[Rfam]
RNA sequence: CUGCUGCCCCAACGGCUUCCUGACGGGGUGGUUAAACAUCUAUCGGAGCA
Dot-bracket structure: ...(((((((..(([[[.[[))..))))))).............]]]]].
Numbered sequence: 001c002u003g004c005u006g007c008c009c010c011a012a013c014g015g016c017u018u019c020c021u022g023a024c025g026g027g028g029u030g031g032u033u034a035a036a037c038a039u040c041u042a043u044c045g046g047a048g049c050a
Stems, first nucleotide, its partner, number of pairs: 004031007013022002015049003019046002
About this RNA: Shown here is a 50-nucleotide RNA sequence from Pseudooceanicola atlanticus, a member of the family "SAM/SAH riboswitch aptamer". The source organism's lineage runs through Bacteria, Pseudomonadota, Alphaproteobacteria, Rhodobacterales and Pseudooceanicola. The match comes from Rfam's covariance-model search (53 bits).